The family of this 420-nucleotide part of an RNA from Sorghum bicolor is "Eukaryotic large subunit ribosomal RNA". The sequence is in the family's curated seed alignment. The organism belongs to Sorghum, within Eukaryota.
RNA sequence: CGACCCCAGGUCAGUCGGGACCACCCGCUGAGUUUAAGCAUAUAAAUAAGCGGAGGAGAAGAAACUUACAAGGAUUCCCCUAGUAACGGCGAGCGAACCGGGACCAGCCCAGCUUGAGAAUCGGGUGGCUUCGUCACCUGAAUUGUAGUCUGGAGAGGCGUCCUCAGCGACGGACCGGGCCCAAGUUCCCUGGAAAGGGACGCCUGGGAGGGUGAGAGCCCCGUCCGGCCCGGACCCUGCCGCACCACGAGGCGCCGUCAACGAGUCGGGUUGUUUGGGAAUGCAGCCCAAAUCGGGCGGUAAACUCCGUCCAAGGCUAAAUACAGGCGAGAGACCGAUAGCGAACAAGUACCGCGAGGGAAAGAUGAAAAGGACUUUGAAAAGAGAGUCAAAGAGUGCUUGAAAUUGCCGGGAGGGAAG
Number, nucleotide and partner (000 for none) at each position: 001c000002g000003a000004c000005c000006c000007c000008a000009g000010g000011u000012c000013a000014g000015u000016c000017g000018g000019g000020a000021c000022c000023a000024c055025c053026c052027g051028c050029u049030g000031a000032g000033u000034u000035u042036a041037a000038g000039c000040a000041u036042a035043u000044a000045a000046a000047u000048a000049a029050g028051c027052g026053g025054a000055g024056g000057a000058g000059a000060a000061g000062a000063a000064a000065c072066u071067u000068a000069c000070a000071a066072g065073g000074a000075u000076u103077c102078c101079c100080c000081u000082a000083g000084u000085a000086a000087c093088g000089g000090c000091g000092a000093g087094c000095g000096a000097a000098c000099c000100g079101g078102g077103a076104c000105c000106a318107g317108c316109c315110c000111a000112g150113c000114u148115u147116g146117a000118g144119a143120a000121u141122c140123g139124g138125g137126u136127g135128g000129c000130u000131u000132c000133g000134u000135c127136a126137c125138c124139u123140g122141a121142a000143u119144u118145g000146u116147a115148g114149u000150c112151u000152g000153g000154a000155g259156a258157g256158g255159c254160g253161u000162c252163c251164u250165c249166a000167g243168c242169g241170a000171c239172g237173g236174a000175c233176c232177g231178g230179g229180c228181c227182c000183a000184a000185g201186u000187u200188c199189c198190c197191u000192g000193g000194a000195a000196a000197g190198g189199g188200a187201c185202g000203c000204c208205u000206g000207g000208g204209a000210g000211g221212g220213u000214g000215a000216g000217a000218g000219c000220c212221c211222c000223g000224u000225c000226c000227g181228g180229c179230c178231c177232g176233g175234a000235c000236c173237c172238u000239g171240c000241c169242g168243c167244a000245c000246c000247a000248c000249g165250a164251g163252g162253c160254g159255c158256c157257g000258u156259c155260a000261a000262c000263g000264a000265g000266u000267c000268g289269g288270g287271u286272u285273g284274u283275u000276u000277g000278g000279g000280a000281a000282u000283g274284c273285a272286g271287c270288c269289c268290a000291a000292a000293u000294c000295g312296g311297g310298c309299g308300g000301u000302a000303a000304a000305c000306u000307c000308c299309g298310u297311c296312c295313a000314a000315g109316g108317c107318u106319a000320a000321a000322u000323a000324c000325a000326g000327g000328c000329g000330a000331g000332a000333g000334a000335c000336c000337g000338a000339u000340a000341g000342c000343g000344a000345a000346c000347a000348a000349g000350u000351a000352c359353c358354g000355c000356g000357a000358g353359g352360g000361a000362a000363a000364g000365a000366u000367g000368a000369a000370a000371a000372g000373g000374a000375c386376u385377u384378u383379g000380a000381a000382a000383a378384g377385a376386g375387a000388g000389u000390c000391a000392a000393a000394g000395a000396g000397u000398g000399c000400u000401u000402g000403a000404a000405a000406u000407u000408g000409c000410c000411g000412g000413g000414a000415g000416g000417g000418a000419a000420g000